Rfam assigns this 158-nucleotide RNA from Callorhinus ursinus to the family "Small nucleolar RNA SNORA8".
Nucleotides: 158
Stems, first nucleotide, its partner, number of pairs: 002060006015053001017051001018046002021043008063147003068142002070139003079127001
Number, partner (000 for none) and nucleotide at each position: 001000c002060g003059c004058a005057c006056u007055g008000c009000a010000u011000g012000g013000u014000a015053u016000c017051u018046g019045c020000c021043c022042u023041c024040a025039g026038c027037a028036g029000c030000u031000c032000a033000u034000u035000c036028c037027u038026g039025c040024u041023g042022g043021g044000u045019g046018u047000u048000c049000a050000a051017a052000a053015g054000a055007c056006a057005g058004u059003g060002c061000a062000a063147u064146a065145g066000a067000a068142a069141c070139u071138c072137a073000g074000u075000a076000u077000c078000u079127g080000g081000u082000u083000g084000g085000u086000u087000c088000u089000c090000u091000u092000g093000g094000c095000u096000u097000c098000a099000u100000g101000c102000a103000u104000a105000g106000a107000u108000u109000u110000a111000g112000c113000u114000u115000a116000a117000a118000u119000g120000u121000a122000a123000g124000u125000a126000a127079u128000u129000u130000c131000u132000a133000g134000u135000c136000a137072u138071g139070g140000g141069g142068u143000g144000c145065c146064u147063g148000g149000u150000g151000g152000c153000u154000c155000a156000g157000u158000c
The source organism's lineage runs through Eukaryota, Chordata, Euteleostomi, Otariidae and Callorhinus. The match comes from Rfam's covariance-model search (67 bits). ACA8 is a member of the H/ACA class of snoRNA that guide the sites of modification of uridines to pseudouridines. Rfam 15.1 lists 1,490 matches to the family in 610 species. Gene Ontology terms of the family: nucleolus and RNA processing. Its Rfam clan is "SNORA8 clan".